[Rfam]
RNA sequence: GAGCGGAGAUGAGUGCACGUUUGCUUCUGACACCUCUUAUGUUAGCGGUCAUUUCCGGGCCGCAAUGAUUCCAAACUGUGAUCUGAGCUC
Numbered sequence: 001g002a003g004c005g006g007a008g009a010u011g012a013g014u015g016c017a018c019g020u021u022u023g024c025u026u027c028u029g030a031c032a033c034c035u036c037u038u039a040u041g042u043u044a045g046c047g048g049u050c051a052u053u054u055c056c057g058g059g060c061c062g063c064a065a066u067g068a069u070u071c072c073a074a075a076c077u078g079u080g081a082u083c084u085g086a087g088c089u090c
Stems, first nucleotide, its partner, number of pairs: 001090004
Overview: A member of the RNA family "Small nucleolar RNA sn2903" from Ancylostoma caninum, 90 nucleotides long. The family has 4 seed sequences and 32 matches in Rfam 15.1. The match comes from Rfam's covariance-model search (78 bits).